RNA: drum RNA
Organism: Butyrivibrio proteoclasticus
Nucleotides: 109
Stems, first nucleotide, its partner, number of pairs: 003047002011042011024080004062104003084091002
Number, partner (000 for none) and nucleotide at each position: 001000g002000a003047g004046c005000c006000a007000u008000g009000a010000g011042g012041c013040u014039g015038c016037a017036u018035g019034g020033a021032g022000g023000g024080c025079u026078g027077g028000c029000a030000u031000g032021c033020u034019u035018u036017a037016u038015g039014c040013g041012g042011c043000g044000g045000a046004g047003c048000c049000a050000u051000c052000g053000u054000g055000g056000g057000g058000u059000u060000u061000g062104a063103u064102a065000a066000a067000u068000a069000a070000c071000c072000a073000c074000a075000a076000a077027c078026c079025a080024g081000c082000u083000a084091g085090g086000a087000u088000u089000u090085c091084c092000g093000a094000a095000a096000g097000a098000a099000a100000a101000u102064u103063a104062u105000c106000c107000a108000a109000g